[Rfam]
RNA sequence: CUCUUAUCAAGAGAAGCCGAGGGAAAUGGCCCGUUGAAGCUUCAGCAACCUCUGACUAGUCAGAAAGGUGCUAACUCCUACAAGAUAAUUUCUUGAAAGAUAAGAA
Numbered sequence: 001c002u003c004u005u006a007u008c009a010a011g012a013g014a015a016g017c018c019g020a021g022g023g024a025a026a027u028g029g030c031c032c033g034u035u036g037a038a039g040c041u042u043c044a045g046c047a048a049c050c051u052c053u054g055a056c057u058a059g060u061c062a063g064a065a066a067g068g069u070g071c072u073a074a075c076u077c078c079u080a081c082a083a084g085a086u087a088a089u090u091u092c093u094u095g096a097a098a099g100a101u102a103a104g105a106a
Stems, first nucleotide, its partner, number of pairs: 002105007013043005021032003028078002044072004049068002051064004076098001081095005
RNA: SAM riboswitch aptamer (S box leader)